[Rfam]
RNA: mir-196 microRNA precursor family
RNA sequence: CCUGUGGGUUAGGUAGUUUCAUGUUGUUGGGCUCUGGCUUUCAAACGCAACAACACCGAACUCCCUGAUUUACUGC
Numbered sequence: 001c002c003u004g005u006g007g008g009u010u011a012g013g014u015a016g017u018u019u020c021a022u023g024u025u026g027u028u029g030g031g032c033u034c035u036g037g038c039u040u041u042c043a044a045a046c047g048c049a050a051c052a053a054c055a056c057c058g059a060a061c062u063c064c065c066u067g068a069u070u071u072a073c074u075g076c
Base pairs, nucleotide, nucleotide: 004073005072006071007070008069009068010067011066012065013064015062016061017060018059019058022055023054024053025052026051027050028049029048031046